[Rfam]
RNA sequence: UAUGCGGAAGCCGAAAAGCAGUAACAGAGUAGGCA
Dot-bracket structure: ..(((....[[[.....)))...........]]].
RNA: DUF805b RNA